[Rfam]
RNA sequence: UGGAGUGUGACAAUGGUGUUUGUGUCCUCUGCUGUCAAACGCCAUUAUUACACUAUAUA
Numbered sequence: 001u002g003g004a005g006u007g008u009g010a011c012a013a014u015g016g017u018g019u020u021u022g023u024g025u026c027c028u029c030u031g032c033u034g035u036c037a038a039a040c041g042c043c044a045u046u047a048u049u050a051c052a053c054u055a056u057a058u059a
Stems, first nucleotide, its partner, number of pairs: 004054007012046011
Dot-bracket structure: ...(((((((.(((((((((((.............))))))))))).))))))).....